[Rfam]
The record is a 272-nucleotide RNA from Xylaria flabelliformis, which matches "A. fumigatus sRNA Afu_309" in Rfam. The source organism's lineage runs through Eukaryota, saccharomyceta, Pezizomycotina, leotiomyceta and Xylaria. The family's RNA type in Rfam is small RNA. A reference for the family is Jochl et al. (2008), "Small ncRNA transcriptome analysis from Aspergillus fumigatus suggests a novel mechanism for regulation of protein synthesis", Nucleic Acids Res.
RNA sequence: CCUUCUUCUUCAACCACCGACCUGUGCCCGAUCGUCCUCUGUUCGCAUUGCGAAUUCAGAGUUGAUGGUCGAGGCAGCUCGAUUUCCUAUGGAAUCAUCCUUCUUGUCAUGAUGUCAGUCCAAAUCACAGGUCGUAGAGCAACCAAUGCAGGGAACCUGAGCUCGCCGUUAGGCUGAGCUCGGUCCUCUGUAUUUGAAGACCGUAUAUUCCAAAGCCACAACCGAGAUCUUUGAUUCAUGAGGUGGGGGAAAACCAUACGAUGUCUACAUAC
Numbered sequence: 001c002c003u004u005c006u007u008c009u010u011c012a013a014c015c016a017c018c019g020a021c022c023u024g025u026g027c028c029c030g031a032u033c034g035u036c037c038u039c040u041g042u043u044c045g046c047a048u049u050g051c052g053a054a055u056u057c058a059g060a061g062u063u064g065a066u067g068g069u070c071g072a073g074g075c076a077g078c079u080c081g082a083u084u085u086c087c088u089a090u091g092g093a094a095u096c097a098u099c100c101u102u103c104u105u106g107u108c109a110u111g112a113u114g115u116c117a118g119u120c121c122a123a124a125u126c127a128c129a130g131g132u133c134g135u136a137g138a139g140c141a142a143c144c145a146a147u148g149c150a151g152g153g154a155a156c157c158u159g160a161g162c163u164c165g166c167c168g169u170u171a172g173g174c175u176g177a178g179c180u181c182g183g184u185c186c187u188c189u190g191u192a193u194u195u196g197a198a199g200a201c202c203g204u205a206u207a208u209u210c211c212a213a214a215g216c217c218a219c220a221a222c223c224g225a226g227a228u229c230u231u232u233g234a235u236u237c238a239u240g241a242g243g244u245g246g247g248g249g250a251a252a253a254c255c256a257u258a259c260g261a262u263g264u265c266u267a268c269a270u271a272c
Stems, first nucleotide, its partner, number of pairs: 018134008026075003029071003033067004037061005043054001044052003085124001090117003094113003145194003151188003155184003159181006165174002199265003202260005216248002219245001221244003226236004